[Rfam]
RNA sequence: UUGCAGGAUAAGUUACAGACCGGCUGUGGCAGUGCCGGUUUGUCGUUCCCCCUGCACAAAUAAACCUGUUUCCUUCUAUCCCUGUGCGUUUCACAUCCUAUGACACUCAGGGACGCUGGUCUCAGACAU
Numbered sequence: 001u002u003g004c005a006g007g008a009u010a011a012g013u014u015a016c017a018g019a020c021c022g023g024c025u026g027u028g029g030c031a032g033u034g035c036c037g038g039u040u041u042g043u044c045g046u047u048c049c050c051c052c053u054g055c056a057c058a059a060a061u062a063a064a065c066c067u068g069u070u071u072c073c074u075u076c077u078a079u080c081c082c083u084g085u086g087c088g089u090u091u092c093a094c095a096u097c098c099u100a101u102g103a104c105a106c107u108c109a110g111g112g113a114c115g116c117u118g119g120u121c122u123c124a125g126a127c128a129u
Base pairs, nucleotide, nucleotide: 003055004054005053006052007051015043016042017041018040019039020038021037022036023035024034081111082110083109084108086106088104089103
RNA: Small nucleolar RNA SNORA63